[Rfam]
RNA sequence: AAAGCAGGGAUUGUGUGUAUCGGCGUAGUGCUAAUCUCAGUGCACUCUGUUCCGAAAGACUUCCCUGCAACAUCCAAUCCUCAAGGGAAGGUGGGCAGUUGUGAUUCAUCUCCCAUUGAUUUCUCAACAAUCAUCUUCCCUACAUCA
Number, nucleotide and partner (000 for none) at each position: 001a000002a000003a000004g068005c067006a066007g065008g064009g063010a062011u000012u000013g000014u000015g045016u044017g043018u042019a041020u040021c000022g000023g000024c000025g000026u000027a000028g000029u000030g000031c000032u000033a000034a000035u000036c000037u000038c000039a000040g020041u019042g018043c017044a016045c015046u000047c000048u000049g000050u000051u000052c000053c000054g000055a000056a000057a000058g000059a000060c000061u000062u010063c009064c008065c007066u006067g005068c004069a000070a000071c000072a000073u000074c000075c000076a000077a000078u000079c000080c000081u000082c000083a000084a141085g140086g139087g138088a137089a136090g135091g134092u133093g132094g131095g000096c000097a000098g128099u127100u126101g125102u000103g000104a000105u000106u000107c000108a000109u000110c000111u000112c000113c000114c000115a000116u000117u000118g000119a000120u000121u000122u000123c000124u000125c101126a100127a099128c098129a000130a000131u094132c093133a092134u091135c090136u089137u088138c087139c086140c085141u084142a000143c000144a000145u000146c000147a000